[Rfam]
RNA sequence: UAAGGGGAUACCGAAAACCUUGAACAGAGUAGGUC
Numbered sequence: 001u002a003a004g005g006g007g008a009u010a011c012c013g014a015a016a017a018c019c020u021u022g023a024a025c026a027g028a029g030u031a032g033g034u035c
Stems, first nucleotide, its partner, number of pairs: 002021004010034003
DUF805b RNA: a 35-nucleotide RNA from Acetobacteroides hydrogenigenes. The match comes from Rfam's covariance-model search (39 bits).